[Rfam]
Shown here is an 82-nucleotide RNA sequence from Roseovarius nubinhibens, a member of the family "Singlet oxygen resistance RNA X".
SorX (RSs2461)like SorY is a singlet oxygen induced sRNA that counteracts oxidative stress by targeting mRNA for a transporter in Rhodobacter. It also has an impact on resistance against organic hydroperoxides. It targets SD sequence of potA mRNA via an aSD sequence. The aSD sequence and some neighbouring nucleotides are identical to the one of SorY (targets takP mRNA).
Rfam classes the family as a small RNA.
Gene Ontology term of the family: response to photooxidative stress.
The literature on the family includes a 2016 paper in RNA Biol by Peng et al., "Regulation of a polyamine transporter by the conserved 3' UTR-derived sRNA SorX confers resistance to singlet oxygen and organic hydroperoxides in Rhodobacter sphaeroides".
The match comes from Rfam's covariance-model search (49 bits).

RNA sequence: CUCAUGACGAUGACGUUGGUUACACCGUCAUCAUCAUACCUCCCUGUUGGACUUCGGCCGAGCUUAGUGCUCGGCCUUUUUU
Number, nucleotide and partner (000 for none) at each position: 001c000002u000003c000004a037005u036006g035007a034008c000009g000010a000011u000012g000013a000014c000015g000016u000017u000018g000019g000020u000021u000022a000023c000024a000025c000026c000027g000028u000029c000030a000031u000032c000033a000034u007035c006036a005037u004038a000039c000040c000041u000042c000043c000044c000045u000046g000047u000048u000049g000050g000051a000052c000053u000054u000055c000056g076057g075058c074059c073060g072061a071062g070063c069064u000065u000066a000067g000068u000069g063070c062071u061072c060073g059074g058075c057076c056077u000078u000079u000080u000081u000082u000